[Rfam]
Description:
The family of this 231-nucleotide sequence from Drosophila gunungcola is "R2 RNA element". By type it is a cis-regulatory element. The family's consensus secondary structure is taken from published work. About the family: This family represents the 3' UTR region of the R2 retrotransposable element. This family is known to interact with the R2-encoded reverse transcriptase in a reaction known as target primed reverse transcription (TPRT). Gene Ontology term of the family: regulation of reverse transcription.

RNA sequence: ACCUUUUUUUGGAGUGGAUUCCUUCCAUAUUAGUAUGCUACCUUGGCAUUAAUAUUGAAACAAAUAAGGUAAAAACCCAGCCCUAGAUAGUAUGAAGUUGGUUUUAGUACGUAAGCGUUGUGCAAAUAAGGGUCUUUCUCCGCGUUAUACAAUGCAUAGUGCUUGCGAGGUAUUGAUGCAUAUCGGAAACCAUCAACACUGGUAUCUUUAAAGAUUACCGAUCCUUGAGAC
Numbered sequence: 001a002c003c004u005u006u007u008u009u010u011g012g013a014g015u016g017g018a019u020u021c022c023u024u025c026c027a028u029a030u031u032a033g034u035a036u037g038c039u040a041c042c043u044u045g046g047c048a049u050u051a052a053u054a055u056u057g058a059a060a061c062a063a064a065u066a067a068g069g070u071a072a073a074a075a076c077c078c079a080g081c082c083c084u085a086g087a088u089a090g091u092a093u094g095a096a097g098u099u100g101g102u103u104u105u106a107g108u109a110c111g112u113a114a115g116c117g118u119u120g121u122g123c124a125a126a127u128a129a130g131g132g133u134c135u136u137u138c139u140c141c142g143c144g145u146u147a148u149a150c151a152a153u154g155c156a157u158a159g160u161g162c163u164u165g166c167g168a169g170g171u172a173u174u175g176a177u178g179c180a181u182a183u184c185g186g187a188a189a190c191c192a193u194c195a196a197c198a199c200u201g202g203u204a205u206c207u208u209u210a211a212a213g214a215u216u217a218c219c220g221a222u223c224c225u226u227g228a229g230a231c
Base pairs, nucleotide, nucleotide: 039071040070041069042068043067044066078229093227094226095225097223099220100219101218107162108161109160110159116154117153118152119151120150121149164204165203166202168200169199